Shown here is a 91-nucleotide RNA from Curtobacterium sp. MR_MD2014, a member of the family "Glycine riboswitch aptamer". This family represents the bacterial glycine riboswitch. The match comes from Rfam's covariance-model search (48 bits). Rfam links the family to the GO term glycine biosynthetic process. The base pairs follow the family's consensus structure.

RNA sequence: ACACCCGCCGCGGGAGAGCCGAGCGCACGCGCACGGCACCGAAGGAGCAACCUCCCCGUCAAUCUCUCAGGUCCCACACCGCAGCGGACAG
Numbered sequence: 001a002c003a004c005c006c007g008c009c010g011c012g013g014g015a016g017a018g019c020c021g022a023g024c025g026c027a028c029g030c031g032c033a034c035g036g037c038a039c040c041g042a043a044g045g046a047g048c049a050a051c052c053u054c055c056c057c058g059u060c061a062a063u064c065u066c067u068c069a070g071g072u073c074c075c076a077c078a079c080c081g082c083a084g085c086g087g088a089c090a091g
Stems, first nucleotide, its partner, number of pairs: 006086003010082004019036003038072003041068002045066003052058001